This 97-nucleotide RNA sequence from Amphibacillus marinus belongs to the Rfam family "BsrF". On this family, see Saito et al., Gene 2008: "Novel small RNA-encoding genes in the intergenic regions of Bacillus subtilis".

RNA sequence: GCGAUGAGCUGAUUUGCAUAAGACGCGCACAUCAAACGUUGAAUGUGGCAACGGUGACGCGCCGCAAAUAUGAUUACUUGUUCCAGGAUCAAGUAAU
Numbered sequence: 001g002c003g004a005u006g007a008g009c010u011g012a013u014u015u016g017c018a019u020a021a022g023a024c025g026c027g028c029a030c031a032u033c034a035a036a037c038g039u040u041g042a043a044u045g046u047g048g049c050a051a052c053g054g055u056g057a058c059g060c061g062c063c064g065c066a067a068a069u070a071u072g073a074u075u076a077c078u079u080g081u082u083c084c085a086g087g088a089u090c091a092a093g094u095a096a097u
Stems, first nucleotide, its partner, number of pairs: 014067004024061004028056003037053005073097008